Overview
A member of the RNA family "ZMP/ZTP riboswitch aptamer (pfl RNA motif)" from Ruminococcus sp. CAG:382, 101 nucleotides long.
RNA sequence: GCAAUCCUUUGUGACUGACGGAAAAAGCAGAGUACUGCGUGGGAGCAGAGGAUAAUAUAAAGAAAGGCUUUUCCUUUCUGCCGACCGUCUGGGCUCAGUUG
Numbered sequence: 001g002c003a004a005u006c007c008u009u010u011g012u013g014a015c016u017g018a019c020g021g022a023a024a025a026a027g028c029a030g031a032g033u034a035c036u037g038c039g040u041g042g043g044a045g046c047a048g049a050g051g052a053u054a055a056u057a058u059a060a061a062g063a064a065a066g067g068c069u070u071u072u073c074c075u076u077u078c079u080g081c082c083g084a085c086c087g088u089c090u091g092g093g094c095u096c097a098g099u100u101g
Base pairs, nucleotide, nucleotide: 004053005052006051007050008049009048010047011046012045015042016041017089018088019087020086021085027038028037029036030035080094081093082092
Description
The family's consensus secondary structure is taken from published work.